[Rfam]
A member of the RNA family "Lysine riboswitch aptamer" from Lachnospiraceae bacterium 1_4_56FAA, 172 nucleotides long. About the family: Riboswitches are metabolite binding domains within certain messenger RNAs that serve as precision sensors for their corresponding targets. Allosteric rearrangement of mRNA structure is mediated by ligand binding, and this results in modulation of gene expression.
RNA sequence: AACGUAGGUAGAGGUUGCAUUCUUUAUCAGUAAGGUGCCGGAUGUACAGGAGCAGGGGAAAGCAUCAGAAAGGAAAGAUUGCCGAAAGUAUAUGAGACCUGAAAUCAUAUUGCUUGGGUGUGGCGUGAAGAACGACAUGGCUGUCAUCGCAGGAUGGAGAGCUAUCUGAUUU
Numbered sequence: 001a002a003c004g005u006a007g008g009u010a011g012a013g014g015u016u017g018c019a020u021u022c023u024u025u026a027u028c029a030g031u032a033a034g035g036u037g038c039c040g041g042a043u044g045u046a047c048a049g050g051a052g053c054a055g056g057g058g059a060a061a062g063c064a065u066c067a068g069a070a071a072g073g074a075a076a077g078a079u080u081g082c083c084g085a086a087a088g089u090a091u092a093u094g095a096g097a098c099c100u101g102a103a104a105u106c107a108u109a110u111u112g113c114u115u116g117g118g119u120g121u122g123g124c125g126u127g128a129a130g131a132a133c134g135a136c137a138u139g140g141c142u143g144u145c146a147u148c149g150c151a152g153g154a155u156g157g158a159g160a161g162c163u164a165u166c167u168g169a170u171u172u
Stems, first nucleotide, its partner, number of pairs: 006167006017082003021078005034066005086115003090110006116142002119139004124134003144157005